[Rfam]
RNA: Bacterial RNase P class A
Organism: Muribaculaceae bacterium Isolate-104
RNA sequence: GUAGCCGGGCGUUUCGUCGCUCACCGAUGAACAAGCGGUGUGAGGAAAGUCCGGGCAACACAGAGCGCCACACUUCUUAACGGGAAGCUGUCGGAAACGGCAGAGUAAUGUGACAGAAAACAACCGCCGCUACAUGCGGUAAGGGUGAAAAGGCGGGGUAAGAGCCCACCGGGUUCCAUGGUGACAUGGAAUGCCGCACAUCUUUGGGUUGCAAGACCAUGUAUACCGGCAUUUAAGGGUUGCUCGCCCAUUGUCGGGGGGUAGGUCGCUACAGCUGUGCGGCAACGUACAGCGCAGAUAAAUGACGAAACGCAGCGUCAAGCCGCUUUAUGCGGAACUGUCGGCUGCGACAUAACCCGGCUUAUAGCCCGGCUCCCUUU
Numbered sequence: 001g002u003a004g005c006c007g008g009g010c011g012u013u014u015c016g017u018c019g020c021u022c023a024c025c026g027a028u029g030a031a032c033a034a035g036c037g038g039u040g041u042g043a044g045g046a047a048a049g050u051c052c053g054g055g056c057a058a059c060a061c062a063g064a065g066c067g068c069c070a071c072a073c074u075u076c077u078u079a080a081c082g083g084g085a086a087g088c089u090g091u092c093g094g095a096a097a098c099g100g101c102a103g104a105g106u107a108a109u110g111u112g113a114c115a116g117a118a119a120a121c122a123a124c125c126g127c128c129g130c131u132a133c134a135u136g137c138g139g140u141a142a143g144g145g146u147g148a149a150a151a152g153g154c155g156g157g158g159u160a161a162g163a164g165c166c167c168a169c170c171g172g173g174u175u176c177c178a179u180g181g182u183g184a185c186a187u188g189g190a191a192u193g194c195c196g197c198a199c200a201u202c203u204u205u206g207g208g209u210u211g212c213a214a215g216a217c218c219a220u221g222u223a224u225a226c227c228g229g230c231a232u233u234u235a236a237g238g239g240u241u242g243c244u245c246g247c248c249c250a251u252u253g254u255c256g257g258g259g260g261g262u263a264g265g266u267c268g269c270u271a272c273a274g275c276u277g278u279g280c281g282g283c284a285a286c287g288u289a290c291a292g293c294g295c296a297g298a299u300a301a302a303u304g305a306c307g308a309a310a311c312g313c314a315g316c317g318u319c320a321a322g323c324c325g326c327u328u329u330a331u332g333c334g335g336a337a338c339u340g341u342c343g344g345c346u347g348c349g350a351c352a353u354a355a356c357c358c359g360g361c362u363u364a365u366a367g368c369c370c371g372g373c374u375c376c377c378u379u380u
Stems, first nucleotide, its partner, number of pairs: 001376001003374008011365001012310007020042001022040005028034001047363003051360005056211004063245004068207003072203001073087005088103001090101004105201001110199003124144002126140005152170002155167003172194001173192008215267004226257005237249004274293008